The record is a 184-nucleotide RNA sequence from Lepidopterella palustris, which matches "U2 spliceosomal RNA" in Rfam.
Rfam's curators write: U2 is a small nuclear RNA (snRNA) component of the spliceosome (involved in pre-mRNA splicing). Complementary binding between U2 snRNA (in an area lying towards the 5' end but 3' to hairpin I) and the branchpoint sequence (BPS) of the intron results the bulging out of an unpaired adenosine, on the BPS, which initiates a nucleophilic attack at the intronic 5' splice site, thus starting the first of two transesterification reactions that mediate splicing.
The base pairs follow the family's consensus structure, which is taken from published work.
The family's RNA type in Rfam is spliceosomal small nuclear RNA.
On this family, see Zwieb, Nucleic Acids Res 1997: "The uRNA database".

RNA sequence: AUUACUUGAGUUACUAAUGGCUUUUUAGGUAUCUGUUCUUUUCAGUUUAAUCUCUGAAACGUCACUACGGUGGCAUUCUUGAUUAAUCCACUAUUUGGAAACCGUAACCAGACCUCUAGGCUUGCUUAUGUCUGAUUGCACCGUGUCGCUCGUAUUGCACUGCUUCGGGCUGAUGCGAAUAAUG
Numbered sequence: 001a002u003u004a005c006u007u008g009a010g011u012u013a014c015u016a017a018u019g020g021c022u023u024u025u026u027a028g029g030u031a032u033c034u035g036u037u038c039u040u041u042u043c044a045g046u047u048u049a050a051u052c053u054c055u056g057a058a059a060c061g062u063c064a065c066u067a068c069g070g071u072g073g074c075a076u077u078c079u080u081g082a083u084u085a086a087u088c089c090a091c092u093a094u095u096u097g098g099a100a101a102c103c104g105u106a107a108c109c110a111g112a113c114c115u116c117u118a119g120g121c122u123u124g125c126u127u128a129u130g131u132c133u134g135a136u137u138g139c140a141c142c143g144u145g146u147c148g149c150u151c152g153u154a155u156u157g158c159a160c161u162g163c164u165u166c167g168g169g170c171u172g173a174u175g176c177g178a179a180u181a182a183u184g
Stems, first nucleotide, its partner, number of pairs: 040059006061074005104139004109134003117128004142177006148170005